Source information:
The record is a 143-nucleotide RNA sequence from Heterotrigona itama, which matches "U11 spliceosomal RNA" in Rfam. Gene Ontology terms of the family: mRNA 5'-splice site recognition, pre-mRNA 5'-splice site binding and U11 snRNP. For this family Rfam cites "Additional low-abundance human small nuclear ribonucleoproteins: U11, U12, etc" (Montzka and Steitz, Proc Natl Acad Sci U S A, 1988). By type it is a spliceosomal small nuclear RNA.
RNA sequence: AAAAAGGGUGCUCGCUACUUUAAUAGCGCUUCAGUACGGCUUUAAAUGUCGUGCUGACGGGGUAUGGCUAAUCAAGACAUACCCAGUACGUAAUUUUUGUAAAAGCGGGGCUGUUAGCUGCCAAUUUUUGCACUGACGCCUCC
Numbered sequence: 001a002a003a004a005a006g007g008g009u010g011c012u013c014g015c016u017a018c019u020u021u022a023a024u025a026g027c028g029c030u031u032c033a034g035u036a037c038g039g040c041u042u043u044a045a046a047u048g049u050c051g052u053g054c055u056g057a058c059g060g061g062g063u064a065u066g067g068c069u070a071a072u073c074a075a076g077a078c079a080u081a082c083c084c085a086g087u088a089c090g091u092a093a094u095u096u097u098u099g100u101a102a103a104a105g106c107g108g109g110g111c112u113g114u115u116a117g118c119u120g121c122c123a124a125u126u127u128u129u130g131c132a133c134u135g136a137c138g139c140c141u142c143c
Base pairs, nucleotide, nucleotide: 008089009088010087011086012085013028014027015026016025017024029059031057032056033055034054035053036052037051038050039049040048060084061083062082063081064080065079066078108141109140110139111138113137114136115135116134117133119132120131121130